Shown here is a 176-nucleotide RNA sequence from Bisgaardia hudsonensis, a member of the family "Lysine riboswitch aptamer".
Taxonomically the source falls in Bisgaardia (Bacteria, Pseudomonadati, Pasteurellales, Pasteurellaceae).

RNA sequence: CUUAUAGGUAGAGGUGCAAUUACUAUAAGUAUUUUUUCGGAGUGGAUAACGUUGAUGAAAAAUGAAAGGAGUAAUUGCCGAAAUCAGUUAAGAGUCAUUUUAAUUGGUUGGUGGCGUGUUCGAAAGGAACGUCACUGUCAUAGUUAUCUUUUUUACUAUGGAGCGCUACUGGCUAG
Numbered sequence: 001c002u003u004a005u006a007g008g009u010a011g012a013g014g015u016g017c018a019a020u021u022a023c024u025a026u027a028a029g030u031a032u033u034u035u036u037u038c039g040g041a042g043u044g045g046a047u048a049a050c051g052u053u054g055a056u057g058a059a060a061a062a063u064g065a066a067a068g069g070a071g072u073a074a075u076u077g078c079c080g081a082a083a084u085c086a087g088u089u090a091a092g093a094g095u096c097a098u099u100u101u102a103a104u105u106g107g108u109u110g111g112u113g114g115c116g117u118g119u120u121c122g123a124a125a126g127g128a129a130c131g132u133c134a135c136u137g138u139c140a141u142a143g144u145u146a147u148c149u150u151u152u153u154u155a156c157u158a159u160g161g162a163g164c165g166c167u168a169c170u171g172g173c174u175a176g
Stems, first nucleotide, its partner, number of pairs: 007170005016078009033062007082109012110136008119127002138161007